[Rfam]
RNA sequence: UAGCAUCUUCGGGGCAGGGUGAAAUUCCCUACCGGCGGUAUAGCCCGCGAGCCACAAUAGUGGUUGAUUUGGUGUAAUUCCAAAGCCGACAGUAAAGUCUGGAUGGUAGAAGAUCAUG
Numbered sequence: 001u002a003g004c005a006u007c008u009u010c011g012g013g014g015c016a017g018g019g020u021g022a023a024a025u026u027c028c029c030u031a032c033c034g035g036c037g038g039u040a041u042a043g044c045c046c047g048c049g050a051g052c053c054a055c056a057a058u059a060g061u062g063g064u065u066g067a068u069u070u071g072g073u074g075u076a077a078u079u080c081c082a083a084a085g086c087c088g089a090c091a092g093u094a095a096a097g098u099c100u101g102g103a104u105g106g107u108a109g110a111a112g113a114u115c116a117u118g
Base pairs, nucleotide, nucleotide: 005114006113007112008111009110010109017029018028019027031098032097033088034087035048036047037046038045043086044085051064052063053062068084069083070082071081072080090101091100092099
RNA: FMN riboswitch aptamer (RFN element)
Organism: Marinisporobacter balticus